RNA sequence: UCAGGGGGGAGAAGCUAAGAUCCGUCUGGCGCGAUCCGGUCACCCAGGCCGGGCGGUGAGCUAAUGGUGAGACCGACCCUCCGGGGU
Numbered sequence: 001u002c003a004g005g006g007g008g009g010a011g012a013a014g015c016u017a018a019g020a021u022c023c024g025u026c027u028g029g030c031g032c033g034a035u036c037c038g039g040u041c042a043c044c045c046a047g048g049c050c051g052g053g054c055g056g057u058g059a060g061c062u063a064a065u066g067g068u069g070a071g072a073c074c075g076a077c078c079c080u081c082c083g084g085g086g087u
Base pairs, nucleotide, nucleotide: 002086006082007081008080009079011077013062014061015060022056023055024054025053026052027051028050029049038074039073040070041069042068043067044066